[Rfam]
RNA sequence: CAACCAGUAUCGCUUAAUCUCCUUGAGUGGAGAGCGGGGGAACCAAAUGGCGUGUUGGCGGUGCAUCUAUGGCAUGGCUGAACGCGUGGAUUGAUUCCUUGGGGUGAAUUCGGUGCAGCCGAGCCAUGAGCCGGUUCGCAGCGACAGGGCGACUCUCACAGCCCGAACCCGACAGCUAACCUCGUCAGCGUACGGAGAGAGGGGUC
Numbered sequence: 001c002a003a004c005c006a007g008u009a010u011c012g013c014u015u016a017a018u019c020u021c022c023u024u025g026a027g028u029g030g031a032g033a034g035c036g037g038g039g040g041a042a043c044c045a046a047a048u049g050g051c052g053u054g055u056u057g058g059c060g061g062u063g064c065a066u067c068u069a070u071g072g073c074a075u076g077g078c079u080g081a082a083c084g085c086g087u088g089g090a091u092u093g094a095u096u097c098c099u100u101g102g103g104g105u106g107a108a109u110u111c112g113g114u115g116c117a118g119c120c121g122a123g124c125c126a127u128g129a130g131c132c133g134g135u136u137c138g139c140a141g142c143g144a145c146a147g148g149g150c151g152a153c154u155c156u157c158a159c160a161g162c163c164c165g166a167a168c169c170c171g172a173c174a175g176c177u178a179a180c181c182u183c184g185u186c187a188g189c190g191u192a193c194g195g196a197g198a199g200a201g202g203g204g205u206c
Stems, first nucleotide, its partner, number of pairs: 011190004018033005034185006044101002102170003110144003147164004
A member of the RNA family "c-di-AMP riboswitch aptamer (ydaO/yuaA leader)" from Paenibacillus dendritiformis, 206 nucleotides long. This family represents a conserved RNA structure found upstream of the ydaO and yuaA genes in Bacillus subtilis and related genes in other bacteria. The ydaO/yuaA element is thought to act as a genetic 'off' switch for the ydaO and yuaA genes in its native state. It is believed that the element may be triggered during osmotic shock leading to activation of ydaO, a predicted amino acid transporter gene, and members of the yuaA-yubG operon which code for KtrA and KtrB K+ transporters. The organism belongs to Paenibacillus dendritiformis, within Bacteria. For this family Rfam cites "New RNA motifs suggest an expanded scope for riboswitches in bacterial genetic control" (Barrick et al., Proc Natl Acad Sci U S A, 2004).